RNA sequence: CAAAAGGCCCUUUUCAGGGCCACUCACCUAUCUGUUAAUGAGCUUU
Numbered sequence: 001c002a003a004a005a006g007g008c009c010c011u012u013u014u015c016a017g018g019g020c021c022a023c024u025c026a027c028c029u030a031u032c033u034g035u036u037a038a039u040g041a042g043c044u045u046u
Stems, first nucleotide, its partner, number of pairs: 006021006